[Rfam]
RNA sequence: UAGUGUCUUCAGGGUUGGGUGAAAUUCCCUAUCGGCGGUACAGCCCGCAAGCUAAAAAAGCAGAUUCGGUUAAAUUCCGAAGCCGACAGUAUAGUCUGGAUGGAAGAAGAUAGUA
Numbered sequence: 001u002a003g004u005g006u007c008u009u010c011a012g013g014g015u016u017g018g019g020u021g022a023a024a025u026u027c028c029c030u031a032u033c034g035g036c037g038g039u040a041c042a043g044c045c046c047g048c049a050a051g052c053u054a055a056a057a058a059a060g061c062a063g064a065u066u067c068g069g070u071u072a073a074a075u076u077c078c079g080a081a082g083c084c085g086a087c088a089g090u091a092u093a094g095u096c097u098g099g100a101u102g103g104a105a106g107a108a109g110a111u112a113g114u115a
Stems, first nucleotide, its partner, number of pairs: 004112007017029003031095002033085002035048004043083002051061003065081005087098003